The family of this 79-nucleotide RNA sequence from Laticauda laticaudata is "Mammalian CPEB3 ribozyme". The mammalian CPEB3 ribozyme is a self cleaving RNA located in the second intron of the CPEB3 gene which belongs to a family of genes regulating messenger RNA polyadenylation. This ribozyme is highly conserved and found only in mammals. The base pairs follow the family's consensus structure, which is taken from published work.
RNA sequence: AGUGAUACUGCAGGGGGCCAUAGAAGGAGCGUUCACGUCAUGGUCCCUGUCAGGUAUCUGUUUACCUGCGAAUCCUUCU
Numbered sequence: 001a002g003u004g005a006u007a008c009u010g011c012a013g014g015g016g017g018c019c020a021u022a023g024a025a026g027g028a029g030c031g032u033u034c035a036c037g038u039c040a041u042g043g044u045c046c047c048u049g050u051c052a053g054g055u056a057u058c059u060g061u062u063u064a065c066c067u068g069c070g071a072a073u074c075c076u077u078c079u
Base pairs, nucleotide, nucleotide: 014047015046016045017044018043019042022079023078024077025076026075027074028073029041031039051068052067053066054065055064056063